[Rfam]
RNA sequence: UCCUAUUCUCAGGGCGGGGUGAAAUUCCCCACCGGCGGUAUGUGGGUUUGCCCCAUGAGCCCGCGAGCGCCUCGGUUGUAUAGCUUUCGAGGGUCAAGCAGAUCAGGUGAGAUGCCUGAGCCGACGGUCAUAGUCCGGAUGAAAGAGAAUGUGC
Numbered sequence: 001u002c003c004u005a006u007u008c009u010c011a012g013g014g015c016g017g018g019g020u021g022a023a024a025u026u027c028c029c030c031a032c033c034g035g036c037g038g039u040a041u042g043u044g045g046g047u048u049u050g051c052c053c054c055a056u057g058a059g060c061c062c063g064c065g066a067g068c069g070c071c072u073c074g075g076u077u078g079u080a081u082a083g084c085u086u087u088c089g090a091g092g093g094u095c096a097a098g099c100a101g102a103u104c105a106g107g108u109g110a111g112a113u114g115c116c117u118g119a120g121c122c123g124a125c126g127g128u129c130a131u132a133g134u135c136c137g138g139a140u141g142a143a144a145g146a147g148a149a150u151g152u153g154c
Stems, first nucleotide, its partner, number of pairs: 004151007017029003031134002033123002035064004059121002067099002103119005125137003